[Rfam]
Nucleotides: 148
Base pairs, nucleotide, nucleotide: 004023005022006021007020008019033052034051035050036049039046054067055066056065057064082148083147084146085145086144089143090142091141092140093139094138095137098132101129102128103127104126105125107123108122109121110120111119
Number, partner (000 for none) and nucleotide at each position: 001000g002000u003000g004023c005022c006021u007020u008019a009000a010000a011000c012000u013000a014000a015000u016000g017000a018000g019008u020007a021006a022005g023004g024000a025000a026000a027000a028000u029000a030000u031000a032000g033052a034051g035050c036049u037000u038000u039046g040000g041000u042000a043000a044000c045000g046039c047000u048000u049036a050035g051034c052033u053000a054067u055066g056065c057064u058000c059000a060000a061000u062000u063000a064057a065056g066055c067054g068000a069000u070000c071000c072000a073000a074000u075000u076000u077000u078000u079000g080000a081000a082148g083147a084146g085145g086144u087000u088000c089143a090142g091141g092140u093139c094138g095137u096000c097000c098132c099000a100000a101129g102128g103127c104126u105125g106000u107123g108122c109121g110120a111119a112000c113000u114000a115000c116000u117000u118000u119111u120110u121109c122108g123107c124000g125105u126104g127103g128102c129101u130000a131000g132098g133000u134000g135000a136000a137095g138094c139093g140092a141091u142090c143089u144086a145085c146084c147083u148082c
A member of the RNA family "U12 minor spliceosomal RNA" from Camponotus floridanus, 148 nucleotides long. A search with the family's covariance model found it, with a score of 117 bits. A reference for the family is Tarn and Steitz (1997), "Pre-mRNA splicing: the discovery of a new spliceosome doubles the challenge", Trends Biochem Sci. NCBI's taxonomy places the organism under Eukaryota, Protostomia, Pterygota, Neoptera, Camponotus. By type it is a spliceosomal small nuclear RNA.